[Rfam]
RNA sequence: CAUAGGGCGGUGCCCUAUGCUAUGAUAUUUCGCACCGUUGGUGCU
Numbered sequence: 001c002a003u004a005g006g007g008c009g010g011u012g013c014c015c016u017a018u019g020c021u022a023u024g025a026u027a028u029u030u031c032g033c034a035c036c037g038u039u040g041g042u043g044c045u
Base pairs, nucleotide, nucleotide: 001019002018003017004016005015006014007013008012032044033043034042035041036040

Rfam assigns this 45-nucleotide RNA from Limihaloglobus sulfuriphilus to the family "Acido-Lenti-1 RNA". A search with the family's covariance model found it, with a score of 38 bits. Lineage of the source: Bacteria > Phycisphaerae > Sedimentisphaerales > Sedimentisphaeraceae > Limihaloglobus. The family's RNA type in Rfam is small RNA.